[Rfam]
This 90-nucleotide sequence belongs to the Rfam family "pan motif".
Rfam's curators put it in the seed alignment.
Pairs were carried over by alignment from the consensus structure, which is taken from published work.
RNA sequence: AGGGCAGUAUCCAUUGUGAACGGCACCUUCAAAACGUAAGAUCUCAUACUAACAAAUAUCUGCCUUGAUCUAUAUGACAGGGACGGAAGA
Numbered sequence: 001a002g003g004g005c006a007g008u009a010u011c012c013a014u015u016g017u018g019a020a021c022g023g024c025a026c027c028u029u030c031a032a033a034a035c036g037u038a039a040g041a042u043c044u045c046a047u048a049c050u051a052a053c054a055a056a057u058a059u060c061u062g063c064c065u066u067g068a069u070c071u072a073u074a075u076g077a078c079a080g081g082g083a084c085g086g087a088a089g090a
Stems, first nucleotide, its partner, number of pairs: 001028003004024002007021002010019002060086003063082005069077002